[Rfam]
RNA sequence: AGAUGAGUGAAACACCUCGCUCGCAGGGGACUGCGGGCGAUGCCGAGCCGGUACUUCCCCAGUGCCGACCCGGUCGUGCCAUCGCGCACACCACUGGAGCCCCUGGCUCCGGACAUCCUCACCGAUCGGA
Numbered sequence: 001a002g003a004u005g006a007g008u009g010a011a012a013c014a015c016c017u018c019g020c021u022c023g024c025a026g027g028g029g030a031c032u033g034c035g036g037g038c039g040a041u042g043c044c045g046a047g048c049c050g051g052u053a054c055u056u057c058c059c060c061a062g063u064g065c066c067g068a069c070c071c072g073g074u075c076g077u078g079c080c081a082u083c084g085c086g087c088a089c090a091c092c093a094c095u096g097g098a099g100c101c102c103c104u105g106g107c108u109c110c111g112g113a114c115a116u117c118c119u120c121a122c123c124g125a126u127c128g129g130a
Stems, first nucleotide, its partner, number of pairs: 004121004009117002017040010042074004047069001049067006076089004094112008122129002

Shown here is a 130-nucleotide sequence from Streptomyces netropsis, a member of the family "Streptomyces RNA 5676". Taxonomically the source falls in Streptomyces (Bacteria, Bacillati, Actinomycetes, Streptomycetaceae). Identified by deep sequencing of transcriptome at the end of exponential growth phase. Appears longer on northern blot than sequencing transcript. This indicates processing step. It scores 120 bits against the family's covariance model. Rfam classes the family as a small RNA.